[Rfam]
RNA sequence: AGCUGAUGCAGUUGGUGGCCAACUUCUCCCUGGCUCACCGCAGCAGCUGUUCCCCUCUGGAGGUUUUGAGAAGCCUUCUAACUUAUAGGGCCCCGGUUUCGGAGGCCCUUUUUU
Numbered sequence: 001a002g003c004u005g006a007u008g009c010a011g012u013u014g015g016u017g018g019c020c021a022a023c024u025u026c027u028c029c030c031u032g033g034c035u036c037a038c039c040g041c042a043g044c045a046g047c048u049g050u051u052c053c054c055c056u057c058u059g060g061a062g063g064u065u066u067u068g069a070g071a072a073g074c075c076u077u078c079u080a081a082c083u084u085a086u087a088g089g090g091c092c093c094c095g096g097u098u099u100c101g102g103a104g105g106c107c108c109u110u111u112u113u114u
Stems, first nucleotide, its partner, number of pairs: 001048005007042003015038004059078006087109006093102003
Alphaproteobacterial ar15: a 114-nucleotide RNA sequence from Martelella alba. Its family is annotated with protein binding in the Gene Ontology. Lineage of the source: Bacteria > Pseudomonadota > Alphaproteobacteria > Aurantimonadaceae > Martelella. The family has 61 seed sequences and 316 matches in Rfam 15.1. Pairs were carried over by alignment from the consensus structure. It is annotated as a small RNA. For this family Rfam cites "Identification of two small regulatory RNAs linked to virulence in Brucella abortus 2308" (Caswell et al., Mol Microbiol, 2012).